[Rfam]
RNA sequence: GCCCCGCUCUCCCCGCACAGGAGAGCGGACCGAGGAACCGGUGCUCUCUGCCCUGACCGCGCCGGGUUCUCCCGAAUCGGCGGCCGGAACCGCACAGACCGGCUGCCGAUGCACCAGAAGGGCUGCGGUGUUGGGGUCGGGUUGAGGGUCCCGCCCUGGCGC
Numbered sequence: 001g002c003c004c005c006g007c008u009c010u011c012c013c014c015g016c017a018c019a020g021g022a023g024a025g026c027g028g029a030c031c032g033a034g035g036a037a038c039c040g041g042u043g044c045u046c047u048c049u050g051c052c053c054u055g056a057c058c059g060c061g062c063c064g065g066g067u068u069c070u071c072c073c074g075a076a077u078c079g080g081c082g083g084c085c086g087g088a089a090c091c092g093c094a095c096a097g098a099c100c101g102g103c104u105g106c107c108g109a110u111g112c113a114c115c116a117g118a119a120g121g122g123c124u125g126c127g128g129u130g131u132u133g134g135g136g137u138c139g140g141g142u143u144g145a146g147g148g149u150c151c152c153g154c155c156c157u158g159g160c161g162c
Base pairs, nucleotide, nucleotide: 004028005027006026008024009023010022011021012020032071033070034069035068036067038065039064040063041062043060044059045056046055077109078108079107080106081105082104083103086100087099112130113129114128115127120124133156134155135154138153139152140151141150
RNA: Streptomyces sRNA scr5239
Organism: Streptomyces longispororuber